The record is a 60-nucleotide RNA, which matches "Transposase-1 RNA" in Rfam. Rfam classes the family as a small RNA. It is one of the family's seed sequences.
[Rfam]
RNA sequence: UGUUAAUAGAUUGCCUCUGUCAUUACCUGCUUUUUGCGGAUAUGGGAAUGCAAUUGAUGA
Numbered sequence: 001u002g003u004u005a006a007u008a009g010a011u012u013g014c015c016u017c018u019g020u021c022a023u024u025a026c027c028u029g030c031u032u033u034u035u036g037c038g039g040a041u042a043u044g045g046g047a048a049u050g051c052a053a054u055u056g057a058u059g060a
Stems, first nucleotide, its partner, number of pairs: 009055006020045004027039003